The record is a 102-nucleotide RNA sequence from Romboutsia ilealis, which matches "Purine riboswitch aptamer" in Rfam. Riboswitches are metabolite binding domains within certain messenger RNAs that serve as precision sensors for their corresponding targets. Taxonomically the source falls in Romboutsia (Bacteria, Bacillati, Clostridia, Peptostreptococcales). The base pairs follow the family's consensus structure, which is taken from published work.
RNA sequence: UUAAAUAAAGAAUACGUCACUCGUAUAUACUCAGAAAUAAGGUCUGAGAGUUUCUACCGAGAUACCGUAAAUAUCUUGACUAUGAGUGAAAUUAUUAUAAAU
Number, nucleotide and partner (000 for none) at each position: 001u000002u000003a000004a000005a000006u000007a000008a000009a000010g000011a000012a000013u000014a000015c000016g000017u000018c088019a087020c086021u085022c084023g083024u082025a081026u000027a000028u000029a000030c048031u047032c046033a045034g044035a043036a000037a000038u000039a000040a000041g000042g000043u035044c034045u033046g032047a031048g030049a000050g000051u000052u000053u000054c000055u000056a000057c000058c078059g077060a076061g075062a074063u073064a072065c000066c000067g000068u000069a000070a000071a000072u064073a063074u062075c061076u060077u059078g058079a000080c000081u025082a024083u023084g022085a021086g020087u019088g018089a000090a000091a000092u000093u000094a000095u000096u000097a000098u000099a000100a000101a000102u000